[Rfam]
RNA sequence: ACGGACGCGUGCGGCGAGGUCUCCAGCCCGCUCCUCGCGCCUUCUGACGCACCUUCCCCGGCGCCAGACGGCGGCUUCCCCGGAGAGCGGGCGGAGACCUGGCCGCACGACACGAAUUCU
Number, nucleotide and partner (000 for none) at each position: 001a000002c000003g000004g000005a000006c000007g000008c000009g000010u107011g106012c105013g104014g103015c102016g000017a000018g099019g098020u000021c096022u095023c094024c093025a000026g092027c091028c090029c089030g088031c087032u086033c085034c000035u083036c000037g000038c073039g072040c071041c070042u000043u068044c067045u066046g065047a000048c063049g062050c061051a000052c000053c000054u000055u000056c000057c000058c000059c000060g000061g050062c049063g048064c000065c046066a045067g044068a043069c000070g041071g040072c039073g038074g000075c000076u000077u000078c000079c000080c000081c000082g000083g035084a000085g033086a032087g031088c030089g029090g028091g027092c026093g024094g023095a022096g021097a000098c019099c018100u000101g000102g015103c014104c013105g012106c011107a010108c000109g000110a000111c000112a000113c000114g000115a000116a000117u000118u000119c000120u000
Shown here is a 120-nucleotide RNA from Thermasporomyces composti, a member of the family "mraW RNA". Rfam classes the family as a cis-regulatory element. Taxonomically the source falls in Thermasporomyces (Bacteria, Actinomycetota, Actinomycetes, Nocardioidaceae). Pairs were carried over by alignment from the consensus structure, which is taken from published work.